[Rfam]
RNA sequence: GAAAAAGGCCUCUGUCGUGAGUGGCACACAUAGGGCAGCUUGAUAACUUUACAUGCAGAAUCGACAUCAGGAGAUUUCAGAAGCAUAAUAUUUGGUACCUGCGCAGCUGGUGAUCGUUGGUCCUGGCGCCGCA
Numbered sequence: 001g002a003a004a005a006a007g008g009c010c011u012c013u014g015u016c017g018u019g020a021g022u023g024g025c026a027c028a029c030a031u032a033g034g035g036c037a038g039c040u041u042g043a044u045a046a047c048u049u050u051a052c053a054u055g056c057a058g059a060a061u062c063g064a065c066a067u068c069a070g071g072a073g074a075u076u077u078c079a080g081a082a083g084c085a086u087a088a089u090a091u092u093u094g095g096u097a098c099c100u101g102c103g104c105a106g107c108u109g110g111u112g113a114u115c116g117u118u119g120g121u122c123c124u125g126g127c128g129c130c131g132c133a
Base pairs, nucleotide, nucleotide: 008084009083011081012080013026014025015024016023017022027055028054031051032050033049034048035047038044058077059076060075061074062073102131103129104128106127107126108125109124110123112122113121114120115119
Dot-bracket structure: .......((.(((((((....)))))((..(((((..(.....)..)))))..))..(((((..........)))))..)).)).................(((.(((((.((((...))))))))))).)..
Notes: Shown here is a 133-nucleotide RNA from Molossus molossus, a member of the family "U11 spliceosomal RNA". The source organism's lineage runs through Eukaryota, Craniata, Amniota, Theria and Molossus. The match comes from Rfam's covariance-model search (77 bits). On this family, see Montzka and Steitz, Proc Natl Acad Sci U S A 1988: "Additional low-abundance human small nuclear ribonucleoproteins: U11, U12, etc". The base pairs follow the family's consensus structure, which is taken from published work.